RNA sequence: ACCAGCUGUCCUUUAGCAGCACGUAAAUGUUGGAGUUAAAAUGGUCCCAAUAUUAUCUGUGCUGCUAGAGUAAAACUGGC
Dot-bracket structure: .((((.......(((((((((((..((((((((.((.......)).))))))))...))))))))))).......)))).
Numbered sequence: 001a002c003c004a005g006c007u008g009u010c011c012u013u014u015a016g017c018a019g020c021a022c023g024u025a026a027a028u029g030u031u032g033g034a035g036u037u038a039a040a041a042u043g044g045u046c047c048c049a050a051u052a053u054u055a056u057c058u059g060u061g062c063u064g065c066u067a068g069a070g071u072a073a074a075a076c077u078g079g080c
Stems, first nucleotide, its partner, number of pairs: 002079004013068011026054008035045002

mir-15 microRNA precursor family: an 80-nucleotide RNA from Xenopus laevis. This family represents the related mir-15a and mir-15b sequences. In humans miR-15a and miR-16 are clustered within 0.5 kb at 13q14. This region has been shown to be deleted in more than half of B cell chronic lymphocytic leukaemias (CLL). Both miR-15a and miR-16 are deleted or down-regulated in more than two thirds of CLL cases. The mature sequence is excised from the 5' arm of the hairpin. Taxonomically the source falls in Xenopus (Eukaryota, Metazoa, Chordata, Anura). Rfam 15.1 lists 2,045 matches to the family in 649 species. Gene Ontology terms of the family: RISC complex and miRNA-mediated post-transcriptional gene silencing.